[Rfam]
RNA: RAGATH-18 RNA
Organism: Tepidanaerobacter syntrophicus
RNA sequence: CCUUUGGAGCGCCAAACAAACACCAGUAGAGUUAAUCGAAAGUGGGUACGAUGAACAAGGAA
Numbered sequence: 001c002c003u004u005u006g007g008a009g010c011g012c013c014a015a016a017c018a019a020a021c022a023c024c025a026g027u028a029g030a031g032u033u034a035a036u037c038g039a040a041a042g043u044g045g046g047u048a049c050g051a052u053g054a055a056c057a058a059g060g061a062a
Stems, first nucleotide, its partner, number of pairs: 001060004009049001011047003021044003029037002